[Rfam]
Description: This 66-nucleotide RNA from Callithrix jacchus belongs to the Rfam family "U7 small nuclear RNA". It scores 45 bits against the family's covariance model. The literature on the family includes a 1987 paper in Science by Mowry and Steitz, "Identification of the human U7 snRNP as one of several factors involved in the 3' end maturation of histone premessenger RNA's". About the family: Animal histone pre-mRNAs are spliced by a different mechanism than nuclear pre-mRNAs and self-splicing introns. This processing involves the U7 snRNP, which contains only one RNA species: U7. The 5' end of U7 RNA is thought to base-pair to a conserved spacer element downstream of the cleavage site in histone pre-mRNA. This family contains a number of annotated U7 pseudogenes. The family's consensus secondary structure was predicted with PFOLD.
RNA sequence: GAAUGUUAAAGCUCUUUUAGAAUUUGUCUCAUAGACUUUCUGGAAGAUCUUUACCAGAAAGCCUCC
Numbered sequence: 001g002a003a004u005g006u007u008a009a010a011g012c013u014c015u016u017u018u019a020g021a022a023u024u025u026g027u028c029u030c031a032u033a034g035a036c037u038u039u040c041u042g043g044a045a046g047a048u049c050u051u052u053a054c055c056a057g058a059a060a061g062c063c064u065c066c
Stems, first nucleotide, its partner, number of pairs: 034063001036061008
Dot-bracket structure: .................................(.((((((((..........)))))))).)...